[Rfam]
RNA sequence: ACAUAGUUUGGCGAUGGAGUUCGCCAUGAACUGCGCAGUUUCGAGUGCGCCGAUGACUCCUACCUCUAC
Numbered sequence: 001a002c003a004u005a006g007u008u009u010g011g012c013g014a015u016g017g018a019g020u021u022c023g024c025c026a027u028g029a030a031c032u033g034c035g036c037a038g039u040u041u042c043g044a045g046u047g048c049g050c051c052g053a054u055g056a057c058u059c060c061u062a063c064c065u066c067u068a069c
Stems, first nucleotide, its partner, number of pairs: 010025004016060006033050004
The family of this 69-nucleotide sequence from Propionispora vibrioides is "Fluoride riboswitch aptamer (crcB RNA motif)". A search with the family's covariance model found it, with a score of 51 bits. The base pairs follow the family's consensus structure, which is taken from published work.